A member of the RNA family "Clostridiales-1 RNA", 148 nucleotides long. It is one of the family's seed sequences.

RNA sequence: AUCGUAGACAAUGAGGAAAAUAAAAAAUCAGAGGCAAGCUCGCUUGCCUCUGAUUUUUUAUUUGACGAAUGUCCGGAUAUGAGCAAGAAGCACCUAAGUGCGGAUUGCGAAUAUACGGAGGCUGGUGUAAGCCAGCCGUGUCUACGAU
Numbered sequence: 001a002u003c004g005u006a007g008a009c010a011a012u013g014a015g016g017a018a019a020a021u022a023a024a025a026a027a028u029c030a031g032a033g034g035c036a037a038g039c040u041c042g043c044u045u046g047c048c049u050c051u052g053a054u055u056u057u058u059u060a061u062u063u064g065a066c067g068a069a070u071g072u073c074c075g076g077a078u079a080u081g082a083g084c085a086a087g088a089a090g091c092a093c094c095u096a097a098g099u100g101c102g103g104a105u106u107g108c109g110a111a112u113a114u115a116c117g118g119a120g121g122c123u124g125g126u127g128u129a130a131g132c133c134a135g136c137c138g139u140g141u142c143u144a145c146g147a148u
Stems, first nucleotide, its partner, number of pairs: 003146007012069001015066001018063015034047005073118003077114004083108004090101004120137007